This 172-nucleotide RNA from Trinickia dinghuensis belongs to the Rfam family "Group II catalytic intron D1-D4-3". The match comes from Rfam's covariance-model search (108 bits). About the family: Group II introns are found in rRNA, tRNA and mRNA of organelles in fungi, plants and protists, and also in mRNA in bacteria. The organism belongs to Trinickia, within Bacteria. The base pairs follow the family's consensus structure.
RNA sequence: GAGAGGGCGACCGAUCGUGGGAAGGAAGCGUGGAGCGAAGCCGCGAGCCGAUGAACAAGAACCAGAUAGAAGGCGAAGCCGAUCAGGGCGAGCAGGCAAUGAACUGAGAAGCUCUCGUGGUCAAGUAUCAGGCGGCGUAAAUCUGGCGGUUGUGCGGUGAAGGACUGCGUUC
Numbered sequence: 001g002a003g004a005g006g007g008c009g010a011c012c013g014a015u016c017g018u019g020g021g022a023a024g025g026a027a028g029c030g031u032g033g034a035g036c037g038a039a040g041c042c043g044c045g046a047g048c049c050g051a052u053g054a055a056c057a058a059g060a061a062c063c064a065g066a067u068a069g070a071a072g073g074c075g076a077a078g079c080c081g082a083u084c085a086g087g088g089c090g091a092g093c094a095g096g097c098a099a100u101g102a103a104c105u106g107a108g109a110a111g112c113u114c115u116c117g118u119g120g121u122c123a124a125g126u127a128u129c130a131g132g133c134g135g136c137g138u139a140a141a142u143c144u145g146g147c148g149g150u151u152g153u154g155c156g157g158u159g160a161a162g163g164a165c166u167g168c169g170u171u172c
Base pairs, nucleotide, nucleotide: 001016002015005012006011028172030170031169032168036163040158041157042156043155044154045153046151047150048149049148050147062146063145064144065143066142067141073138074137075136078133079132080131082128083127086114087113088112089111093106094105095104